[Rfam]
RNA sequence: UGAUCUUGUCGUAGGGCGCGACAAGGGUAAAAUAAAAAAAGCCCAACAGAA
Numbered sequence: 001u002g003a004u005c006u007u008g009u010c011g012u013a014g015g016g017c018g019c020g021a022c023a024a025g026g027g028u029a030a031a032a033u034a035a036a037a038a039a040a041g042c043c044c045a046a047c048a049g050a051a
Stems, first nucleotide, its partner, number of pairs: 006024006014044004